Description: The record is a 290-nucleotide sequence, which matches "Clostridiales-3 RNA" in Rfam.

RNA sequence: AUGUGUACCGAAGGACUUAACGGUGAAGGUCAAGCGAAUCACGGACACUUCAUUAUGAAGUGAGUACAAGUUGCUAUCAUGGCGGAGCGAUAAUAACCCACGGAGGGAUAGAAGAUAUUCCUUAUCCUCGCAAUGGCAUAAGAGGAGAUAGUCGUGAUAAACGGCGUCGUGAACACGAAAGUGUCAACGGAUGGCAAUAGCCAUCGCCACAAUAUGUCGAACAUAUUGUGGUAGUGGGUCCUAUGUGUACGGGCGUAAGAGGGACUGGAGACAGUCGGAGUACACUUACA
Numbered sequence: 001a002u003g004u005g006u007a008c009c010g011a012a013g014g015a016c017u018u019a020a021c022g023g024u025g026a027a028g029g030u031c032a033a034g035c036g037a038a039u040c041a042c043g044g045a046c047a048c049u050u051c052a053u054u055a056u057g058a059a060g061u062g063a064g065u066a067c068a069a070g071u072u073g074c075u076a077u078c079a080u081g082g083c084g085g086a087g088c089g090a091u092a093a094u095a096a097c098c099c100a101c102g103g104a105g106g107g108a109u110a111g112a113a114g115a116u117a118u119u120c121c122u123u124a125u126c127c128u129c130g131c132a133a134u135g136g137c138a139u140a141a142g143a144g145g146a147g148a149u150a151g152u153c154g155u156g157a158u159a160a161a162c163g164g165c166g167u168c169g170u171g172a173a174c175a176c177g178a179a180a181g182u183g184u185c186a187a188c189g190g191a192u193g194g195c196a197a198u199a200g201c202c203a204u205c206g207c208c209a210c211a212a213u214a215u216g217u218c219g220a221a222c223a224u225a226u227u228g229u230g231g232u233a234g235u236g237g238g239u240c241c242u243a244u245g246u247g248u249a250c251g252g253g254c255g256u257a258a259g260a261g262g263g264a265c266u267g268g269a270g271a272c273a274g275u276c277g278g279a280g281u282a283c284a285c286u287u288a289c290a
Base pairs, nucleotide, nucleotide: 007030008029009028015024016023017022099171100170101169103123104122105121106120107119108118109117110116125146126145127144128143129142147168148167149166151165152164153163154162155161174183175182176181206213245285246284247283248282249281250280263276264275265274266273267272